[Rfam]
RNA sequence: UUGCGGGACGCGCCAAGCGGAUGCGGCGGUGCUGGAGAACAUCGGGAUUUUUCCGCUUUCUCCCGAUGACCAACGAAACGGCAGGCGAGCUCCCUAUCCGUCCGGUCCG
Numbered sequence: 001u002u003g004c005g006g007g008a009c010g011c012g013c014c015a016a017g018c019g020g021a022u023g024c025g026g027c028g029g030u031g032c033u034g035g036a037g038a039a040c041a042u043c044g045g046g047a048u049u050u051u052u053c054c055g056c057u058u059u060c061u062c063c064c065g066a067u068g069a070c071c072a073a074c075g076a077a078a079c080g081g082c083a084g085g086c087g088a089g090c091u092c093c094c095u096a097u098c099c100g101u102c103c104g105g106u107c108c109g
Base pairs, nucleotide, nucleotide: 006108007107008106009105011023012022014020025102026101027100028099029098034093035092036091037090040068041067042066043065044064045063046062070081071080
Background:
The family of this 109-nucleotide sequence from Rhizobium leguminosarum is "Rhizobiales sRNA Atu_At1". The source organism's lineage runs through Bacteria, Pseudomonadati, Pseudomonadota, Alphaproteobacteria and Rhizobium leguminosarum bv. trifolii. Rfam classes the family as a small RNA. Rfam 15.1 lists 200 matches to the family in 177 species. The base pairs follow the family's consensus structure, which was predicted with CMfinder. It is one of the family's seed sequences.